[Rfam]
RNA sequence: AAGGGAGCAAUAAUCCCCCUCUUCUUCUAUGAAGAGGGCGUUAUUGCUCCUUUUUU
Number, nucleotide and partner (000 for none) at each position: 001a053002a052003g051004g050005g049006a048007g047008c046009a045010a044011u043012a042013a041014u040015c000016c000017c000018c000019c036020u035021c034022u033023u032024c031025u000026u000027c000028u000029a000030u000031g024032a023033a022034g021035a020036g019037g000038g000039c000040g014041u013042u012043a011044u010045u009046g008047c007048u006049c005050c004051u003052u002053u001054u000055u000056u000
RNA: Plastid-psbA-3 3UTR RNA
Organism: Triplostegia glandulifera